[Rfam]
This 178-nucleotide sequence from Planktothricoides sp. SR001 belongs to the Rfam family "Antisense RNA which regulates isiA expression". On this family, see Duhring et al., Proc Natl Acad Sci U S A 2006: "An internal antisense RNA regulates expression of the photosynthesis gene isiA". A search with the family's covariance model found it, with a score of 121 bits. Taxonomically the source falls in Planktothricoides (Bacteria, Bacillati, Oscillatoriales, Oscillatoriaceae).

RNA sequence: GAUAGCCAUAAAUCACAAAUGGAUUGAGAGUUGGUUCUGUCACCACGCGCAGGGUUUGAGUUGCCGCAUCAUAAAGUCCGUCCCAAUACAUGGCUUUGGCUACUAACAAUAAAGCGCCCAUGCCUAAAAACAGUAAAUGAUGCCCCAAAAUCAGCCCCAAUUGUUUGGGAUCGUUCCA
Numbered sequence: 001g002a003u004a005g006c007c008a009u010a011a012a013u014c015a016c017a018a019a020u021g022g023a024u025u026g027a028g029a030g031u032u033g034g035u036u037c038u039g040u041c042a043c044c045a046c047g048c049g050c051a052g053g054g055u056u057u058g059a060g061u062u063g064c065c066g067c068a069u070c071a072u073a074a075a076g077u078c079c080g081u082c083c084c085a086a087u088a089c090a091u092g093g094c095u096u097u098g099g100c101u102a103c104u105a106a107c108a109a110u111a112a113a114g115c116g117c118c119c120a121u122g123c124c125u126a127a128a129a130a131c132a133g134u135a136a137a138u139g140a141u142g143c144c145c146c147a148a149a150a151u152c153a154g155c156c157c158c159a160a161u162u163g164u165u166u167g168g169g170a171u172c173g174u175u176c177c178a
Stems, first nucleotide, its partner, number of pairs: 136175006144169005